RNA sequence: UAACCACUAUCGUGAGAUAGUGCUGAACGUACAGAAGUCAGCCGAGGUCGUAGUAGUCGAGAGAUGAAGGAC
Numbered sequence: 001u002a003a004c005c006a007c008u009a010u011c012g013u014g015a016g017a018u019a020g021u022g023c024u025g026a027a028c029g030u031a032c033a034g035a036a037g038u039c040a041g042c043c044g045a046g047g048u049c050g051u052a053g054u055a056g057u058c059g060a061g062a063g064a065u066g067a068a069g070g071a072c
Stems, first nucleotide, its partner, number of pairs: 001025002005022007038045002047072003056065003
Dot-bracket structure: ((..(((((((....))))))).))............((....)).(((......(((....)))....)))

This 72-nucleotide sequence from Hungatella hathewayi belongs to the Rfam family "Group II catalytic intron D1-D4-1". The source organism's lineage runs through Bacteria, Bacillati, Lachnospirales, Hungatella and Hungatella hathewayi. Rfam's curators put it in the seed alignment. Gene Ontology term of the family: Group II intron splicing. Pairs were carried over by alignment from the consensus structure. About the family: Group II introns are found in rRNA, tRNA and mRNA of organelles in fungi, plants and protists, and also in mRNA in bacteria.